[Rfam]
Overview
The record is a 101-nucleotide RNA sequence, which matches "skipping-rope RNA" in Rfam. The sequence is in the family's curated seed alignment. It is annotated as a small RNA.

Nucleotides: 101
Stems, first nucleotide, its partner, number of pairs: 001101008011033005023087005035068001036056003073093005
Number, partner (000 for none) and nucleotide at each position: 001101g002100g003099c004098a005097u006096c007095u008094g009000a010000g011033g012032u013031g014030g015029u016000c017000a018000a019000u020000u021000u022000c023087g024086u025085g026084g027083c028000a029015g030014c031013c032012a033011c034000a035068c036056g037055c038054c039000g040000a041000u042000g043000g044000u045000a046000a047000c048000g049000a050000c051000a052000a053000g054038g055037g056036c057000u058000u059000u060000u061000g062000c063000u064000c065000u066000g067000a068035g069000a070000g071000a072000u073093g074092c075091a076090g077089g078000a079000g080000a081000a082000c083027g084026c085025c086024a087023c088000g089077c090076c091075u092074g093073c094008c095007g096006g097005a098004u099003g100002c101001c